[Rfam]
RNA sequence: AUGCCCUAAACUUCUGAGUAAGGAAAAUAAUGAUUCGGGGUUACACCUGAAUCCUCACUGCUAAUGUGAGACAAAUUUUUGAGUGGGUAAAGGUUGCCCCUAAGGUAACCCACCUACUUUGCAAGAUGCCUGGGAGUUGCGAUCUGUUCA
Numbered sequence: 001a002u003g004c005c006c007u008a009a010a011c012u013u014c015u016g017a018g019u020a021a022g023g024a025a026a027a028u029a030a031u032g033a034u035u036c037g038g039g040g041u042u043a044c045a046c047c048u049g050a051a052u053c054c055u056c057a058c059u060g061c062u063a064a065u066g067u068g069a070g071a072c073a074a075a076u077u078u079u080u081g082a083g084u085g086g087g088u089a090a091a092g093g094u095u096g097c098c099c100c101u102a103a104g105g106u107a108a109c110c111c112a113c114c115u116a117c118u119u120u121g122c123a124a125g126a127u128g129c130c131u132g133g134g135a136g137u138u139g140c141g142a143u144c145u146g147u148u149c150a
Stems, first nucleotide, its partner, number of pairs: 004023002007020002032053008054070005084150005091145007100134002103131005109125001113121001

Rfam assigns this 150-nucleotide RNA from Carlito syrichta to the family "U12 minor spliceosomal RNA". Its Rfam clan is "U2 clan". Its family is annotated with pre-mRNA branch point binding, mRNA branch site recognition and U12 snRNP in the Gene Ontology. The match comes from Rfam's covariance-model search (120 bits). The family's RNA type in Rfam is spliceosomal small nuclear RNA. Taxonomically the source falls in Carlito (Eukaryota, Gnathostomata, Dipnotetrapodomorpha, Amniota).